Rfam assigns this 95-nucleotide RNA sequence from Nicotiana attenuata to the family "mir-156 microRNA precursor family". About the family: This family represents the plant microRNA (miRNA) precursor mir-156. Rfam links the family to the GO terms RISC complex and miRNA-mediated post-transcriptional gene silencing. Taxonomically the source falls in Nicotiana (Eukaryota, Magnoliopsida, Pentapetalae, Nicotianoideae). It scores 70 bits against the family's covariance model.
[Rfam]
RNA sequence: CUGACAGAAGAGAGUGAGCACACGCACACAAUUGUAUACAGUGUAUACCUUUGUGUUUUAUAUUAUUUGCGUGUGCUCACUUCUCUUUCUGUCAG
Numbered sequence: 001c002u003g004a005c006a007g008a009a010g011a012g013a014g015u016g017a018g019c020a021c022a023c024g025c026a027c028a029c030a031a032u033u034g035u036a037u038a039c040a041g042u043g044u045a046u047a048c049c050u051u052u053g054u055g056u057u058u059u060a061u062a063u064u065a066u067u068u069g070c071g072u073g074u075g076c077u078c079a080c081u082u083c084u085c086u087u088u089c090u091g092u093c094a095g
Base pairs, nucleotide, nucleotide: 001095002094003093004092005091006090007089008088009087010085011084012083013081014080015079016078017077018076019075020074021073023071024070025069